[Rfam]
This 71-nucleotide RNA from Saccharomonospora viridis belongs to the Rfam family "6C RNA". Its family is annotated with sporulation in the Gene Ontology.
RNA sequence: CGCGUUCAGUCCGCCCCCCGGGACUGAAGUUCGGCGGCCCUCGCUCCUCCCCCUGGCGAGGGCCGCCUCUC
Numbered sequence: 001c002g003c004g005u006u007c008a009g010u011c012c013g014c015c016c017c018c019c020g021g022g023a024c025u026g027a028a029g030u031u032c033g034g035c036g037g038c039c040c041u042c043g044c045u046c047c048u049c050c051c052c053c054u055g056g057c058g059a060g061g062g063c064c065g066c067c068u069c070u071c
Base pairs, nucleotide, nucleotide: 002032004030005028006027007026008025009024010023011022012021033067034066035065036064037063038062039061040060041059042058043057044056045055

The organism belongs to Saccharomonospora viridis, within Bacteria. On this family, see Weinberg et al., Nucleic Acids Res 2007: "Identification of 22 candidate structured RNAs in bacteria using the CMfinder comparative genomics pipeline".